RNA sequence: GCACAGAGUAGAAGCGGCUAGCGACCGGCACGGCCUUCGAGGCAGCCGGCACCGUGGGGCAUUGCUCUUGGG
Numbered sequence: 001g002c003a004c005a006g007a008g009u010a011g012a013a014g015c016g017g018c019u020a021g022c023g024a025c026c027g028g029c030a031c032g033g034c035c036u037u038c039g040a041g042g043c044a045g046c047c048g049g050c051a052c053c054g055u056g057g058g059g060c061a062u063u064g065c066u067c068u069u070g071g072g
Stems, first nucleotide, its partner, number of pairs: 005068006015057001018059002021055003025049005

Rfam assigns this 72-nucleotide RNA sequence from Paraburkholderia tropica to the family "Xanthine riboswitch aptamer (NMT1 RNA)". A search with the family's covariance model found it, with a score of 44 bits. The source organism's lineage runs through Bacteria, Pseudomonadota, Burkholderiales, Burkholderiaceae and Paraburkholderia.